[Rfam]
RNA sequence: AUCCUAAUCAACUGCAAGUUGCUUUGGAUAAAAGCAUCUGCUAAAUGACUAUCA
Numbered sequence: 001a002u003c004c005u006a007a008u009c010a011a012c013u014g015c016a017a018g019u020u021g022c023u024u025u026g027g028a029u030a031a032a033a034g035c036a037u038c039u040g041c042u043a044a045a046u047g048a049c050u051a052u053c054a
Stems, first nucleotide, its partner, number of pairs: 013043001014041003020036006
RNA: UnaL2 LINE 3' element
Organism: Albula glossodonta